Source information
The family of this 45-nucleotide RNA sequence from Bradyrhizobium sp. WSM471 is "chrB-b RNA".

RNA sequence: UGGGGACAAAGCAGACUCCCCGUGAGGCCUCGGUCCAAGCUCUGC
Numbered sequence: 001u002g003g004g005g006a007c008a009a010a011g012c013a014g015a016c017u018c019c020c021c022g023u024g025a026g027g028c029c030u031c032g033g034u035c036c037a038a039g040c041u042c043u044g045c
Stems, first nucleotide, its partner, number of pairs: 001022006011045005026035003
About this RNA:
Rfam's curators put it in the seed alignment. Taxonomically the source falls in Bradyrhizobium (Bacteria, Pseudomonadati, Pseudomonadota, Nitrobacteraceae). The base pairs follow the family's consensus structure, which is taken from published work.